[Rfam]
Nucleotides: 138
Stems, first nucleotide, its partner, number of pairs: 002060007014048004021042006069133005075127003079123001082120001085116003088112004093107002
Number, partner (000 for none) and nucleotide at each position: 001000a002060g003059c004058a005057c006056u007055a008054u009000u010000u011000u012000u013000a014048a015047a016046c017045c018000u019000a020000u021042u022041g023040g024039u025038g026037g027000a028000a029000u030000u031000u032000c033000u034000u035000g036000a037026c038025u039024g040023c041022c042021a043000u044000g045017g046016g047015u048014u049000a050000c051000g052000c053000u054008g055007u056006a057005g058004u059003g060002c061000a062000a063000a064000a065000g066000a067000a068000u069133u070132u071131c072130c073129u074000g075127g076126c077125u078000c079123u080000u081000c082120a083000g084000a085116g086115c087114a088112u089111a090110g091109c092000u093107g094106a095000c096000c097000u098000u099000g100000c101000u102000c103000c104000a105000u106094u107093c108000a109091g110090c111089u112088g113000g114087u115086g116085c117000u118000u119000u120082u121000c122000u123079g124000a125077a126076g127075c128000a129073a130072g131071g132070a133069a134000c135000a136000a137000a138000a